[Rfam]
RNA sequence: GGCUGGGUAGCUCAGUUGGUUAGAGCGGUGGAUUCAUAACCCACAGGUCGGCGGUUCGAGCCCGCCUCCAGCUA
Numbered sequence: 001g002g003c004u005g006g007g008u009a010g011c012u013c014a015g016u017u018g019g020u021u022a023g024a025g026c027g028g029u030g031g032a033u034u035c036a037u038a039a040c041c042c043a044c045a046g047g048u049c050g051g052c053g054g055u056u057c058g059a060g061c062c063c064g065c066c067u068c069c070a071g072c073u074a
Stems, first nucleotide, its partner, number of pairs: 001073007010026004028044004050066005
The record is a 74-nucleotide sequence from Phenylobacterium glaciei, which matches "tRNA" in Rfam. Rfam 15.1 lists 5,335,975 matches to the family in 14,413 species. The base pairs follow the family's consensus structure, which is taken from published work.